RNA: mir-3064 microRNA precursor family
RNA sequence: GGUCUGGCUGUUGUGGUGUGCAAAACAUCCUAUGUUGCUUUUUUGCCACACUGCAACACUUUACAGA
Numbered sequence: 001g002g003u004c005u006g007g008c009u010g011u012u013g014u015g016g017u018g019u020g021c022a023a024a025a026c027a028u029c030c031u032a033u034g035u036u037g038c039u040u041u042u043u044u045g046c047c048a049c050a051c052u053g054c055a056a057c058a059c060u061u062u063a064c065a066g067a
Base pairs, nucleotide, nucleotide: 002064003063006060007059009058010057011056012055013054014053015052016051017050018049019048020047021045022044023043024042025041031037032036